[Rfam]
This 122-nucleotide RNA from Actinomyces slackii belongs to the Rfam family "Group II catalytic intron D1-D4-2". Rfam describes the family as follows. Group II introns are found in rRNA, tRNA and mRNA of organelles in fungi, plants and protists, and also in mRNA in bacteria.

RNA sequence: GAAGGGGUCUGGCCCUUCGGAGCCGCUGUGCGGGCGGAGGCUUCAAACCGCCGCAUGCUGCGCGACUGGUGACGGGAGCGUGGUGAGCGAUGUGGAAAAGGCGCCGGGUGUAGGCGUCAGGU
Numbered sequence: 001g002a003a004g005g006g007g008u009c010u011g012g013c014c015c016u017u018c019g020g021a022g023c024c025g026c027u028g029u030g031c032g033g034g035c036g037g038a039g040g041c042u043u044c045a046a047a048c049c050g051c052c053g054c055a056u057g058c059u060g061c062g063c064g065a066c067u068g069g070u071g072a073c074g075g076g077a078g079c080g081u082g083g084u085g086a087g088c089g090a091u092g093u094g095g096a097a098a099a100g101g102c103g104c105c106g107g108g109u110g111u112a113g114g115c116g117u118c119a120g121g122u
Base pairs, nucleotide, nucleotide: 001018002017003016004015005014019044020043021042022041023040024039026037027036028035029034049121051095052094053093054092055091056090057084058083060081061080062079066075067074100118101117102116103115104114105113

The family has 144 seed sequences and 1,231 matches in Rfam 15.1.
A reference for the family is Bonen and Vogel (2001), "The ins and outs of group II introns", Trends Genet.
The match comes from Rfam's covariance-model search (81 bits).
Pairs were carried over by alignment from the consensus structure.